[Rfam]
RNA sequence: GGGGGGAGUGCCAGAUCCUGAGCUGUGUCCAUGGCACUCUGUGAUCCUGGGCCUGCGCUGUUGGAUUUGCGCUCCUGGCCGUGCCGCCCCCU
Numbered sequence: 001g002g003g004g005g006g007a008g009u010g011c012c013a014g015a016u017c018c019u020g021a022g023c024u025g026u027g028u029c030c031a032u033g034g035c036a037c038u039c040u041g042u043g044a045u046c047c048u049g050g051g052c053c054u055g056c057g058c059u060g061u062u063g064g065a066u067u068u069g070c071g072c073u074c075c076u077g078g079c080c081g082u083g084c085c086g087c088c089c090c091c092u
Stems, first nucleotide, its partner, number of pairs: 001092006010084002012081001014079001017078002020075001022073001024071004028065003032060004037055001041053001043052001045050001